[Rfam]
RNA sequence: UGUAUAAUAGGCGAUGGAGUUCGCCUUAAAGUGCUUUUAGCUAAUGACUCCUACCCAAAU
Numbered sequence: 001u002g003u004a005u006a007a008u009a010g011g012c013g014a015u016g017g018a019g020u021u022c023g024c025c026u027u028a029a030a031g032u033g034c035u036u037u038u039a040g041c042u043a044a045u046g047a048c049u050c051c052u053a054c055c056c057a058a059a060u
Stems, first nucleotide, its partner, number of pairs: 010025004016051006033041002
Dot-bracket structure: .........[[[[..((((((]]]].......((.....))....)))))).........
RNA: Fluoride riboswitch aptamer (crcB RNA motif)